Rfam assigns this 102-nucleotide RNA sequence from Fictibacillus enclensis to the family "Purine riboswitch aptamer". Taxonomically the source falls in Fictibacillus (Bacteria, Bacillati, Bacillota, Bacilli). A search with the family's covariance model found it, with a score of 84 bits. From the family's description: Riboswitches are metabolite binding domains within certain messenger RNAs that serve as precision sensors for their corresponding targets.

RNA sequence: ACCGUGAGUGCUUAAGUCAUUCGUAUAAAUUUGGGAAUAUGGCCCAAAAGUUUCUACCAGGCUGCCGUAAAUGGCCUGACUACGAAGGUACAUGGAAUUGUA
Numbered sequence: 001a002c003c004g005u006g007a008g009u010g011c012u013u014a015a016g017u018c019a020u021u022c023g024u025a026u027a028a029a030u031u032u033g034g035g036a037a038u039a040u041g042g043c044c045c046a047a048a049a050g051u052u053u054c055u056a057c058c059a060g061g062c063u064g065c066c067g068u069a070a071a072u073g074g075c076c077u078g079a080c081u082a083c084g085a086a087g088g089u090a091c092a093u094g095g096a097a098u099u100g101u102a
Base pairs, nucleotide, nucleotide: 018088020086021085022084023083024082025081030048031047032046033045034044035043058078059077060076061075062074063073064072
Dot-bracket structure: .................(.((((((....((((((.......)))))).........(((((((.......)))))))..)))))).)..............